RNA sequence: GGAAAAUAAUUGCUUAAUCCCGUUAAGCCGGGAGCGGAGGAACCAUUAUUUGGGGUGAAUCCUAUGCCUUGGCACAGGUAGGGUUUUAAACCUUUCGACCCGAACCCGACAGCUAACUUCGUAAGCAAUGGAAAGGGAGGAU
Numbered sequence: 001g002g003a004a005a006a007u008a009a010u011u012g013c014u015u016a017a018u019c020c021c022g023u024u025a026a027g028c029c030g031g032g033a034g035c036g037g038a039g040g041a042a043c044c045a046u047u048a049u050u051u052g053g054g055g056u057g058a059a060u061c062c063u064a065u066g067c068c069u070u071g072g073c074a075c076a077g078g079u080a081g082g083g084u085u086u087u088a089a090a091c092c093u094u095u096c097g098a099c100c101c102g103a104a105c106c107c108g109a110c111a112g113c114u115a116a117c118u119u120c121g122u123a124a125g126c127a128a129u130g131g132a133a134a135g136g137g138a139g140g141a142u
Stems, first nucleotide, its partner, number of pairs: 011127004018033005034122006044052002053107003061078003081101004
RNA: c-di-AMP riboswitch aptamer (ydaO/yuaA leader)